[Rfam]
The record is a 302-nucleotide RNA from Metamycoplasma canadense, which matches "Bacterial RNase P class B" in Rfam. The literature on the family includes a 1999 paper in Nucleic Acids Res by Brown, "The Ribonuclease P Database". A search with the family's covariance model found it, with a score of 219 bits. Rfam's curators write: Ribonuclease P (RNase P) is a ubiquitous endoribonuclease, found in archaea, bacteria and eukarya as well as chloroplasts and mitochondria. Its best characterised activity is the generation of mature 5'-ends of tRNAs by cleaving the 5'-leader elements of precursor-tRNAs. Its Rfam clan is "RNaseP clan". Pairs were carried over by alignment from the consensus structure, which is taken from published work. Rfam links the family to the GO terms tRNA processing, dimeric ribonuclease P complex and ribonuclease P activity.

RNA sequence: AUGCACAGCCAACUGCUGCAUUUUUGUAGAGGAAAAUCCGCUCUAACACUUGCUGAGAUGCAAGUAGUGUUCAUGCUAGGAUUAAUAAGCCUAGGCAAUUAUUUUAAUUGACGACUAGUGCAACAGAGACGAGCUUAUUAAAUUAAGGUGCAACGAUGUAAACUCCAUGAGUUAGAAACCCAAAUUUUGGUAGGGGAACCUAGUUAAGAUAAAUGAAUUAAGACUAGGAAGUUUUAUUCAAAACUUAGAUAAAUAGUUGGCAUUGUUUUAUUUUUAAACAAUACAAAAAGCGGUUUAUCGUG
Numbered sequence: 001a002u003g004c005a006c007a008g009c010c011a012a013c014u015g016c017u018g019c020a021u022u023u024u025u026g027u028a029g030a031g032g033a034a035a036a037u038c039c040g041c042u043c044u045a046a047c048a049c050u051u052g053c054u055g056a057g058a059u060g061c062a063a064g065u066a067g068u069g070u071u072c073a074u075g076c077u078a079g080g081a082u083u084a085a086u087a088a089g090c091c092u093a094g095g096c097a098a099u100u101a102u103u104u105u106a107a108u109u110g111a112c113g114a115c116u117a118g119u120g121c122a123a124c125a126g127a128g129a130c131g132a133g134c135u136u137a138u139u140a141a142a143u144u145a146a147g148g149u150g151c152a153a154c155g156a157u158g159u160a161a162a163c164u165c166c167a168u169g170a171g172u173u174a175g176a177a178a179c180c181c182a183a184a185u186u187u188u189g190g191u192a193g194g195g196g197a198a199c200c201u202a203g204u205u206a207a208g209a210u211a212a213a214u215g216a217a218u219u220a221a222g223a224c225u226a227g228g229a230a231g232u233u234u235u236a237u238u239c240a241a242a243a244c245u246u247a248g249a250u251a252a253a254u255a256g257u258u259g260g261c262a263u264u265g266u267u268u269u270a271u272u273u274u275u276a277a278a279c280a281a282u283a284c285a286a287a288a289a290g291c292g293g294u295u296u297a298u299c300g301u302g
Base pairs, nucleotide, nucleotide: 004302005301006300007298008261009260010259011258012257013256014255016029017028018027019026020025034296035295036294038293039292040291041290042289043175044174045173046172047171048065049064050063051062052061053060071170072169073168074167075166076094077093078092079091080090095112096110097109098108099107100106101105113165114164118163119162120159121158122157134147135146136145137144179195180194181193199228200227201226202225203224204223205222229246230245231244232243233242234241263281264280265279266278267277268276270274